[Rfam]
RNA sequence: CCCUGGCCUGCGGCCAGGGCUAUCGUACGGCGCUCCUGCGGAGCU
Numbered sequence: 001c002c003c004u005g006g007c008c009u010g011c012g013g014c015c016a017g018g019g020c021u022a023u024c025g026u027a028c029g030g031c032g033c034u035c036c037u038g039c040g041g042a043g044c045u
Stems, first nucleotide, its partner, number of pairs: 001019008032044005
This 45-nucleotide RNA sequence from a Pirellulaceae bacterium belongs to the Rfam family "Acido-Lenti-1 RNA". NCBI's taxonomy places the organism under Bacteria, Pseudomonadati, Planctomycetota, Pirellulales, Pirellulaceae. It is annotated as a small RNA. A search with the family's covariance model found it, with a score of 39 bits.